[Rfam]
RNA sequence: UAAGAUUUAGUAGUGGUCAUUGUAGAAGCGUGCUCGUCGCGACCCCUGCCAGCCCUUUUCAGGGCUUAAAUAUAUAUU
Number, nucleotide and partner (000 for none) at each position: 001u000002a000003a000004g000005a000006u000007u000008u000009a000010g000011u000012a000013g046014u000015g044016g043017u042018c041019a000020u000021u000022g077023u076024a075025g000026a073027a000028g040029c039030g038031u000032g000033c000034u000035c000036g000037u000038c030039g029040c028041g018042a017043c016044c015045c000046c013047u000048g000049c000050c000051a066052g065053c064054c063055c062056u061057u000058u000059u000060c000061a056062g055063g054064g053065c052066u051067u000068a000069a000070a000071u000072a000073u026074a000075u024076a023077u022078u000
RNA: Mammalian CPEB3 ribozyme